[Rfam]
RNA sequence: GUCGAAAAAUGGCAAAAUUACUGAAAAGUAAUGACGCAAAGCUAUAGGGGCUAAGGUCGAUGGGACUAUGCCAGCCAGUUACCGAA
Numbered sequence: 001g002u003c004g005a006a007a008a009a010u011g012g013c014a015a016a017a018u019u020a021c022u023g024a025a026a027a028g029u030a031a032u033g034a035c036g037c038a039a040a041g042c043u044a045u046a047g048g049g050g051c052u053a054a055g056g057u058c059g060a061u062g063g064g065a066c067u068a069u070g071c072c073a074g075c076c077a078g079u080u081a082c083c084g085a086a
Base pairs, nucleotide, nucleotide: 012037013036017032018031019030020029021028022027040080041079042078043077047076048075049072050071051070056066057065058064